[Rfam]
The record is a 66-nucleotide RNA from Enterococcus mundtii, which matches "RAGATH-18 RNA" in Rfam. Rfam describes the family as follows. Actinobacteria, Firmicutes, Fusobacteria, Thermotogae (1 example). The family's consensus secondary structure is taken from published work. The sequence is in the family's curated seed alignment. It is annotated as a small RNA. Taxonomically the source falls in Enterococcus mundtii (Bacteria, Bacilli, Enterococcaceae, Enterococcus).
RNA sequence: ACUGUGGAGAACGAGACAAACCGUAGUAGUGUCGAAGUGACGAGGCGGCGUUCGGUGAAACAGUAA
Numbered sequence: 001a002c003u004g005u006g007g008a009g010a011a012c013g014a015g016a017c018a019a020a021c022c023g024u025a026g027u028a029g030u031g032u033c034g035a036a037g038u039g040a041c042g043a044g045g046c047g048g049c050g051u052u053c054g055g056u057g058a059a060a061c062a063g064u065a066a
Stems, first nucleotide, its partner, number of pairs: 001064005009053005021048003029041002